Shown here is a 175-nucleotide sequence from Phyllostomus discolor, a member of the family "Small nucleolar RNA SNORA81".
Gene Ontology terms of the family: nucleolus and RNA processing.
RNA sequence: GACUUCUGCGUAAGCACGGUGCUAAAACCGCAGAAACGAGGAUCACAGCCCGGCUUGGUAAUGAAGCUAGCAGGGCGCACACAAGAACAGAAGUGACUGCACUAGAUUGUACAGACUGGGGUGGACCUCUUUCUUCACGUCCAGUGUCCUUUGUCUUAAGAUGUAUGCAGCAUGU
Numbered sequence: 001g002a003c004u005u006c007u008g009c010g011u012a013a014g015c016a017c018g019g020u021g022c023u024a025a026a027a028c029c030g031c032a033g034a035a036a037c038g039a040g041g042a043u044c045a046c047a048g049c050c051c052g053g054c055u056u057g058g059u060a061a062u063g064a065a066g067c068u069a070g071c072a073g074g075g076c077g078c079a080c081a082c083a084a085g086a087a088c089a090g091a092a093g094u095g096a097c098u099g100c101a102c103u104a105g106a107u108u109g110u111a112c113a114g115a116c117u118g119g120g121g122u123g124g125a126c127c128u129c130u131u132u133c134u135u136c137a138c139g140u141c142c143a144g145u146g147u148c149c150u151u152u153g154u155c156u157u158a159a160g161a162u163g164u165a166u167g168c169a170g171c172a173u174g175u
Stems, first nucleotide, its partner, number of pairs: 017075001020072005029063002033056002037052002040050002043047001098169004103165002106162001118147001120145001122143004